[Rfam]
Shown here is a 157-nucleotide RNA sequence from Prolemur simus, a member of the family "Small nucleolar RNA SNORA29".
The family has 26 seed sequences and 960 matches in Rfam 15.1.
From the family's description: ACA29 is a member of the H/ACA class of snoRNA that guide the sites of modification of uridines to pseudouridines.
Gene Ontology terms of the family: RNA processing and nucleolus.
The family's RNA type in Rfam is H/ACA-box small nucleolar RNA.
A search with the family's covariance model found it, with a score of 100 bits.
A reference for the family is Huttenhofer et al. (2001), "RNomics: an experimental approach that identifies 201 candidates for novel, small, non-messenger RNAs in mouse", EMBO J.
Its Rfam clan is "SNORA20 clan".

RNA sequence: CUUUCUGCUUUUACUACCUUUUCUCCUAAUAAUAGAUUUUAGUGGCUGUGCUUAUGGGAUAGAUUAAAAUUGUCAUGAUCUGAAGAGAGAGGGGUUUUGUUUGUUUGUUUGUUUGAUUUUUGGUAUCCUUCUAUAUGAAAUGGCUGGACAGAAAUUU
Numbered sequence: 001c002u003u004u005c006u007g008c009u010u011u012u013a014c015u016a017c018c019u020u021u022u023c024u025c026c027u028a029a030u031a032a033u034a035g036a037u038u039u040u041a042g043u044g045g046c047u048g049u050g051c052u053u054a055u056g057g058g059a060u061a062g063a064u065u066a067a068a069a070u071u072g073u074c075a076u077g078a079u080c081u082g083a084a085g086a087g088a089g090a091g092g093g094g095u096u097u098u099g100u101u102u103g104u105u106u107g108u109u110u111g112u113u114u115g116a117u118u119u120u121u122g123g124u125a126u127c128c129u130u131c132u133a134u135a136u137g138a139a140a141u142g143g144c145u146g147g148a149c150a151g152a153a154a155u156u157u
Stems, first nucleotide, its partner, number of pairs: 004058004014045004072144004090132004